[Rfam]
A member of the RNA family "mir-393 microRNA precursor family" from Musa troglodytarum, 98 nucleotides long. It scores 71 bits against the family's covariance model. The family has 27 seed sequences and 1,052 matches in Rfam 15.1. The literature on the family includes a 2012 paper in J Plant Physiol by Kruszka et al., "Role of microRNAs and other sRNAs of plants in their changing environments".
RNA sequence: GAAGGAGAAUUCCAAAGGGAUCGCAUUGAUCUCCCUCUUUGCCUCGUUUCUCCACCUAUGGUUUUAGGAGAUCAUGCGAUUCCUUGGGAAUUUUCCGU
Numbered sequence: 001g002a003a004g005g006a007g008a009a010u011u012c013c014a015a016a017g018g019g020a021u022c023g024c025a026u027u028g029a030u031c032u033c034c035c036u037c038u039u040u041g042c043c044u045c046g047u048u049u050c051u052c053c054a055c056c057u058a059u060g061g062u063u064u065u066a067g068g069a070g071a072u073c074a075u076g077c078g079a080u081u082c083c084u085u086g087g088g089a090a091u092u093u094u095c096c097g098u
Stems, first nucleotide, its partner, number of pairs: 002098001004096003008092006015085007023077004028073007